The family of this 166-nucleotide RNA from Alkalibacterium sp. 20 is "M-box riboswitch aptamer (ykoK leader)". NCBI's taxonomy places the organism under Bacteria, Bacillati, Bacillota, Bacilli, Alkalibacterium. For this family Rfam cites "Magnesium-sensing riboswitches in bacteria" (Ramesh and Winkler, RNA Biol, 2010). From the family's description: M-box riboswitch, also know as ykoK leader is described as a metaloregulatory RNA that sense divalent metals and function as a genetic control element of genes related to divalent metal transport in bacteria. It was first reported upstream of the B.subtilis ykoK gene and genes with related functions in other bacteria. The match comes from Rfam's covariance-model search (136 bits). Rfam 15.1 lists 1,095 matches to the family in 932 species. Pairs were carried over by alignment from the consensus structure.
[Rfam]
RNA sequence: UCAUGACCUUGUUAGGUGAGGCUCCGUAUGGAGACAAGCUACUGCCCGGAAACGUCUAAAGACGCCAACGGGUCAGCAAAAAAUUUCGGAUGAAGGGGAUUUUUAAUGUAGCUGAGGAAUUUUCUCUAUGCCAUAUGAAGCUAAAGCUCAACGACAGAGGUGUUUU
Number, nucleotide and partner (000 for none) at each position: 001u000002c000003a000004u000005g000006a161007c160008c159009u158010u157011g152012u151013u094014a000015g148016g147017u146018g000019a000020g142021g141022c140023u000024c000025c137026g136027u135028a134029u133030g132031g131032a000033g000034a000035c000036a000037a000038g112039c111040u110041a109042c108043u000044g073045c072046c071047c070048g069049g000050a000051a000052a000053c064054g063055u062056c061057u000058a000059a000060a000061g056062a055063c054064g053065c000066c000067a000068a000069c048070g047071g046072g045073u044074c000075a000076g000077c000078a000079a103080a102081a101082a100083a000084u000085u097086u096087c095088g000089g000090a000091u000092g000093a000094a013095g087096g086097g085098g000099a000100u082101u081102u080103u079104u000105a000106a000107u000108g042109u041110a040111g039112c038113u000114g126115a125116g124117g000118a000119a000120u000121u000122u000123u000124c116125u115126c114127u000128a000129u000130g000131c031132c030133a029134u028135a027136u026137g025138a000139a000140g022141c021142u020143a000144a000145a000146g017147c016148u015149c000150a000151a012152c011153g000154a000155c000156a000157g010158a009159g008160g007161u006162g000163u000164u000165u000166u000